[Rfam]
RNA sequence: CGGAGAUGUCUCCUUUCCAAUAUCGAUGGAGAUACUCGGUCAUACUGUGGGUUAAGUACCUUAGACGUAUAUCGUCGAAAGUAUGAUGUGAGGGAGGGUUAGAUGCCCA
Numbered sequence: 001c002g003g004a005g006a007u008g009u010c011u012c013c014u015u016u017c018c019a020a021u022a023u024c025g026a027u028g029g030a031g032a033u034a035c036u037c038g039g040u041c042a043u044a045c046u047g048u049g050g051g052u053u054a055a056g057u058a059c060c061u062u063a064g065a066c067g068u069a070u071a072u073c074g075u076c077g078a079a080a081g082u083a084u085g086a087u088g089u090g091a092g093g094g095a096g097g098g099u100u101a102g103a104u105g106c107c108c109a
Stems, first nucleotide, its partner, number of pairs: 002018003007034007035092004039087008049061004064076004096108004